[Rfam]
RNA: Lysine riboswitch aptamer
Organism: Dysosmobacter segnis
RNA sequence: UCGCUUGAUAGAGGCGCGGUAUCCAUCAGUACUCUCCACAAGGCCAGAGCAGCCGUGGAGUGGGAAAGGGGCCACCGCCGAAGUGUCAGGACAAUGCCUGUUGUCCGGAUGCUGGGUCGGCAGAGAAGAUCUGCCGGACUGUCACAAGAAUUUUUUGUGAAGCGCUAUCAUUGGC
Numbered sequence: 001u002c003g004c005u006u007g008a009u010a011g012a013g014g015c016g017c018g019g020u021a022u023c024c025a026u027c028a029g030u031a032c033u034c035u036c037c038a039c040a041a042g043g044c045c046a047g048a049g050c051a052g053c054c055g056u057g058g059a060g061u062g063g064g065a066a067a068g069g070g071g072c073c074a075c076c077g078c079c080g081a082a083g084u085g086u087c088a089g090g091a092c093a094a095u096g097c098c099u100g101u102u103g104u105c106c107g108g109a110u111g112c113u114g115g116g117u118c119g120g121c122a123g124a125g126a127a128g129a130u131c132u133g134c135c136g137g138a139c140u141g142u143c144a145c146a147a148g149a150a151u152u153u154u155u156u157g158u159g160a161a162g163c164g165c166u167a168u169c170a171u172u173g174g175c
Base pairs, nucleotide, nucleotide: 006170007169008168009167010166011165016078017077018076019075020074023071024070032062034060035059036058037057038056039055082113083112084111085110086109087108089106090105091104092103093102114140115139117137118136119135120134121133122132123131124130142160143159144158145157146156147155148154
Dot-bracket structure: .....((((((....(((((..((.......(.((((((...............)))))).).......))..)))))...((((((.(((((........))))).))))))((.((((((((.....)))))))).)).(((((((.....)))))))....)))))).....